The family of this 124-nucleotide sequence from Sodalis sp. TME1 is "Histidine operon leader". Taxonomically the source falls in Sodalis (Bacteria, Pseudomonadota, Enterobacterales, Bruguierivoracaceae). For this family Rfam cites "Attenuation in amino acid biosynthetic operons" (Kolter and Yanofsky, Annu Rev Genet, 1982). Rfam's curators write: At least 6 amino acid operons are known to be regulated by attenuation. In each a leader sequence of 150-200 bp is found upstream of the first gene in the operon.
RNA sequence: CAACCAUCAUCAUCACCCUGACUAGUCUUUCAGGCGAUGAGUGCUGGAAGACGUUCUAAUCUUCCAGCGGCGCAGAGAAUGUCAGAGAGAGCCCUCGGAAGAUUUCUUCCGAGGUUUUUUUUUU
Numbered sequence: 001c002a003a004c005c006a007u008c009a010u011c012a013u014c015a016c017c018c019u020g021a022c023u024a025g026u027c028u029u030u031c032a033g034g035c036g037a038u039g040a041g042u043g044c045u046g047g048a049a050g051a052c053g054u055u056c057u058a059a060u061c062u063u064c065c066a067g068c069g070g071c072g073c074a075g076a077g078a079a080u081g082u083c084a085g086a087g088a089g090a091g092c093c094c095u096c097g098g099a100a101g102a103u104u105u106c107u108u109c110c111g112a113g114g115u116u117u118u119u120u121u122u123u124u
Stems, first nucleotide, its partner, number of pairs: 008043003011039004017034005044067008086121006093114009